[Rfam]
RNA sequence: GCGUGCCAGUGAUGAUUACAGAGCUAAAAUGGUGAAUUCUGGAUGAGCGUGCUUUGCGCUUGGUGCGCGGCCGUGGUGAUAUCCCUUUCAGUUCAUCUGAGGCACGC
Numbered sequence: 001g002c003g004u005g006c007c008a009g010u011g012a013u014g015a016u017u018a019c020a021g022a023g024c025u026a027a028a029a030u031g032g033u034g035a036a037u038u039c040u041g042g043a044u045g046a047g048c049g050u051g052c053u054u055u056g057c058g059c060u061u062g063g064u065g066c067g068c069g070g071c072c073g074u075g076g077u078g079a080u081a082u083c084c085c086u087u088u089c090a091g092u093u094c095a096u097c098u099g100a101g102g103c104a105c106g107c
Stems, first nucleotide, its partner, number of pairs: 002106006
Small nucleolar RNA Z188: a 107-nucleotide RNA sequence from Leersia perrieri. The literature on the family includes a 2003 paper in Nucleic Acids Res by Chen et al., "The high diversity of snoRNAs in plants: identification and comparative study of 120 snoRNA genes from Oryza sativa". Gene Ontology terms of the family: nucleolus and RNA processing. Pairs were carried over by alignment from the consensus structure, which was predicted with PFOLD. The source organism's lineage runs through Eukaryota, Spermatophyta, Mesangiospermae, Oryzinae and Leersia.